[Rfam]
RNA sequence: UCUGAUCCAUGAUGACUUCCAAACACAUGUGGACUGUUGGAUGAAGCAUGCGGAUAUGGGACUGAGAUCAGAC
Numbered sequence: 001u002c003u004g005a006u007c008c009a010u011g012a013u014g015a016c017u018u019c020c021a022a023a024c025a026c027a028u029g030u031g032g033a034c035u036g037u038u039g040g041a042u043g044a045a046g047c048a049u050g051c052g053g054a055u056a057u058g059g060g061a062c063u064g065a066g067a068u069c070a071g072a073c
Stems, first nucleotide, its partner, number of pairs: 001072005
Rfam assigns this 73-nucleotide RNA from Oryzias latipes to the family "Small nucleolar RNA SNORD99". The base pairs follow the family's consensus structure, which was predicted with RNAalifold. The literature on the family includes a 2002 paper in Mol Cell Biol by Galardi et al., "Purified box C/D snoRNPs are able to reproduce site-specific 2'-O-methylation of target RNA in vitro". The organism belongs to Oryzias, within Eukaryota. The family's RNA type in Rfam is C/D-box small nucleolar RNA.